[Rfam]
RNA sequence: UUCAUUCAUCAGGAGCAUUUCCUACACUAGAGGAAGUCACCAACCGAGAAUAGCAUUCCACGGUGGUUUAGUAUGAGGACACAAGCGGUCAAAAUAUAAUGCUUCU
Number, nucleotide and partner (000 for none) at each position: 001u000002u000003c000004a000005u000006u076007c075008a074009u073010c000011a000012g000013g000014a000015g038016c000017a037018u036019u035020u034021c033022c032023u031024a000025c000026a000027c000028u000029a000030g000031a023032g022033g021034a020035a019036g018037u017038c015039a067040c066041c065042a000043a000044c063045c062046g061047a000048g058049a057050a000051u000052a000053g100054c000055a000056u000057u049058c048059c000060a000061c046062g045063g044064u000065g041066g040067u039068u000069u000070a000071g000072u000073a009074u008075g007076a006077g000078g090079a089080c088081a000082c000083a000084a000085g000086c000087g000088g080089u079090c078091a000092a000093a000094a000095u000096a000097u000098a000099a000100u053101g000102c000103u000104u000105c000106u000
SAM-I/IV (S-adenosyl methionine) riboswitch aptamer: a 106-nucleotide sequence from Planobacterium oryzisoli. The family has 417 seed sequences and 567 matches in Rfam 15.1. The organism belongs to Chryseobacterium, within Bacteria. A reference for the family is Trausch et al. (2014), "Structural basis for diversity in the SAM clan of riboswitches", PNAS.